[Rfam]
Record summary:
A member of the RNA family "epsC RNA" from Cohnella lubricantis, 114 nucleotides long. The base pairs follow the family's consensus structure, which is taken from published work. The source organism's lineage runs through Bacteria, Bacillati, Bacillota, Paenibacillaceae and Cohnella. Rfam classes the family as a cis-regulatory element.
RNA sequence: GGGUGAUCGCCGCUGUACCCCUUAUCGUUUGCGGCACCCGGCCAUGCGGUGGGUCAAUCAGACCUUAGGCGCUAGUCGCCGAGCGUGUGGAGAUGGGGAUGGGUUCGAAACCCU
Number, nucleotide and partner (000 for none) at each position: 001g021002g020003g019004u000005g000006a000007u036008c000009g035010c034011c033012g032013c031014u000015g000016u000017a000018c000019c003020c002021c001022u000023u000024a000025u000026c000027g000028u000029u000030u000031g013032c012033g011034g010035c009036a007037c097038c096039c095040g094041g000042c090043c089044a088045u087046g086047c085048g084049g000050u000051g065052g064053g063054u062055c061056a000057a000058u000059c000060a000061g055062a054063c053064c052065u051066u000067a000068g080069g079070c078071g077072c000073u000074a000075g000076u000077c071078g070079c069080c068081g000082a000083g000084c048085g047086u046087g045088u044089g043090g042091a000092g000093a000094u040095g039096g038097g037098g000099a000100u000101g113102g112103g111104u110105u000106c000107g000108a000109a000110a104111c103112c102113c101114u000